[Rfam]
RNA sequence: CCAUGGGGUAGGGCUUAGCCCACAUGUGAACAGCGUUGGCAUCGGGUCAUGUUCACAGUGGCUAAGUUCCGCUCCCCGG
Numbered sequence: 001c002c003a004u005g006g007g008g009u010a011g012g013g014c015u016u017a018g019c020c021c022a023c024a025u026g027u028g029a030a031c032a033g034c035g036u037u038g039g040c041a042u043c044g045g046g047u048c049a050u051g052u053u054c055a056c057a058g059u060g061g062c063u064a065a066g067u068u069c070c071g072c073u074c075c076c077c078g079g
Base pairs, nucleotide, nucleotide: 011069012068013067014066015065016064017063018062019061020060026056027055028054029053030052031051032050
Rfam assigns this 79-nucleotide sequence from Probosciger aterrimus to the family "mir-27 microRNA precursor family".
Rfam links the family to the GO terms miRNA-mediated post-transcriptional gene silencing and RISC complex.
NCBI's taxonomy places the organism under Eukaryota, Vertebrata, Tetrapoda, Psittaciformes, Probosciger.